[Rfam]
RNA sequence: CUGGGAACAACAUCAUGGUGCUGUGUGAGCGAGCUGGGAAAUGCUCCAGCAUCAGUGAUUUUGUUGCUAG
Numbered sequence: 001c002u003g004g005g006a007a008c009a010a011c012a013u014c015a016u017g018g019u020g021c022u023g024u025g026u027g028a029g030c031g032a033g034c035u036g037g038g039a040a041a042u043g044c045u046c047c048a049g050c051a052u053c054a055g056u057g058a059u060u061u062u063g064u065u066g067c068u069a070g
Base pairs, nucleotide, nucleotide: 006065007064008063009062010061012059013058014057016054017053018052019051020050021049022048023047
RNA: mir-338 microRNA precursor family